The family of this 102-nucleotide RNA from Thermacetogenium phaeum is "TPP riboswitch aptamer (THI element)".
The family's consensus secondary structure is taken from published work.
A search with the family's covariance model found it, with a score of 70 bits.
From the family's description: Vitamin B(1) in its active form thiamin pyrophosphate (TPP) is an essential coenzyme that is synthesised by coupling of pyrimidine and thiazole moieties in bacteria. The previously detected thiamin-regulatory element, thi box was extended, resulting in a new, highly conserved RNA secondary structure, the THI element, which is widely distributed in eubacteria and also occurs in some archaea. Analysis of operon structures identified a large number of new candidate thiamin-regulated genes, mostly transporters, in various prokaryotic organisms.

[Rfam]
RNA sequence: AUGAAAAAACGGGGGUGCCGAAAGGCUGAGAGGCGGGAAACCGCCAACCCUUUGAACCUGAUCUGGGUAAUGCCAGCGAAGGGAUGUGAUAUAGUGUCAGAU
Numbered sequence: 001a002u003g004a005a006a007a008a009a010c011g012g013g014g015g016u017g018c019c020g021a022a023a024g025g026c027u028g029a030g031a032g033g034c035g036g037g038a039a040a041c042c043g044c045c046a047a048c049c050c051u052u053u054g055a056a057c058c059u060g061a062u063c064u065g066g067g068u069a070a071u072g073c074c075a076g077c078g079a080a081g082g083g084a085u086g087u088g089a090u091a092u093a094g095u096g097u098c099a100g101a102u
Stems, first nucleotide, its partner, number of pairs: 006090001009087002011051004017026003033044004057082003063076004